[Rfam]
RNA sequence: GGAGUUGGUUGUCGCGAUAGUAAUUCAAUUCAGUACGAGAGGAACCAUUGAUUCGAGUAAUUGGUAUUUGCCCUUGGUCGAGCGGCCAAUGGGGCGAAGCUAACACUCGCCGGAUUAUGGCUGAACGCCUCUAAGCCAGAAUCCGUGCUAGGAAGCGACGAUGUCUACCCUUUCCGGU
Numbered sequence: 001g002g003a004g005u006u007g008g009u010u011g012u013c014g015c016g017a018u019a020g021u022a023a024u025u026c027a028a029u030u031c032a033g034u035a036c037g038a039g040a041g042g043a044a045c046c047a048u049u050g051a052u053u054c055g056a057g058u059a060a061u062u063g064g065u066a067u068u069u070g071c072c073c074u075u076g077g078u079c080g081a082g083c084g085g086c087c088a089a090u091g092g093g094g095c096g097a098a099g100c101u102a103a104c105a106c107u108c109g110c111c112g113g114a115u116u117a118u119g120g121c122u123g124a125a126c127g128c129c130u131c132u133a134a135g136c137c138a139g140a141a142u143c144c145g146u147g148c149u150a151g152g153a154a155g156c157g158a159c160g161a162u163g164u165c166u167a168c169c170c171u172u173u174c175c176g177g178u
Stems, first nucleotide, its partner, number of pairs: 008162008018150004023053001025051005054109005062102003069096005074089006111145003118138005
Dot-bracket structure: .......((((((((..((((.(.(((((.................))))).)(((((...(((....(((((((((((....))))))..)))))...)))..))))).(((....(((((...........)))))....))).))))....))))))))................
About this RNA: The record is a 178-nucleotide part of an RNA from Thamnocephalis sphaerospora, which matches "Eukaryotic large subunit ribosomal RNA" in Rfam.